RNA sequence: UUUUUUAGGGAAAGUCUGGCCUUUCCACAAGGAAAGGCCAGGGAACUUUCAC
Numbered sequence: 001u002u003u004u005u006u007a008g009g010g011a012a013a014g015u016c017u018g019g020c021c022u023u024u025c026c027a028c029a030a031g032g033a034a035a036g037g038c039c040a041g042g043g044a045a046c047u048u049u050c051a052c
Stems, first nucleotide, its partner, number of pairs: 008052001010050005015042011

This 52-nucleotide RNA sequence from Lentivirus humimdef1 belongs to the Rfam family "HIV Ribosomal frameshift signal".
About the family: This family represents the HIV Ribosomal frameshift signal.
Its family is annotated with viral translational frameshifting in the Gene Ontology.
NCBI's taxonomy places the organism under Viruses, Riboviria, Pararnavirae, Ortervirales, Lentivirus humimdef1.
The sequence is in the family's curated seed alignment.
Pairs were carried over by alignment from the consensus structure, which is taken from published work.
For this family Rfam cites "mRNA stem-loops can pause the ribosome by hindering A-site tRNA binding" (Bao et al., Elife, 2020).